[Rfam]
RNA sequence: CGGCGGUCGCCGUCGAAUCACGGAUGUGAACCGGGGAACCACUACCCACUGGGGUGAAUCCGCGCGUGCGCGGUAGGGCGACACUUCCCGCCCGAACCCGUCAGCUAACCCGGUAGGCGGUACGAGGAAGAGGA
Numbered sequence: 001c002g003g004c005g006g007u008c009g010c011c012g013u014c015g016a017a018u019c020a021c022g023g024a025u026g027u028g029a030a031c032c033g034g035g036g037a038a039c040c041a042c043u044a045c046c047c048a049c050u051g052g053g054g055u056g057a058a059u060c061c062g063c064g065c066g067u068g069c070g071c072g073g074u075a076g077g078g079c080g081a082c083a084c085u086u087c088c089c090g091c092c093c094g095a096a097c098c099c100g101u102c103a104g105c106u107a108a109c110c111c112g113g114u115a116g117g118c119g120g121u122a123c124g125a126g127g128a129a130g131a132g133g134a
Stems, first nucleotide, its partner, number of pairs: 011119004018029003030114006040051002052099003060073004076093004
c-di-AMP riboswitch aptamer (ydaO/yuaA leader): a 134-nucleotide sequence from Planosporangium mesophilum. Lineage of the source: Bacteria > Bacillati > Actinomycetes > Micromonosporaceae > Planosporangium. This family represents a conserved RNA structure found upstream of the ydaO and yuaA genes in Bacillus subtilis and related genes in other bacteria.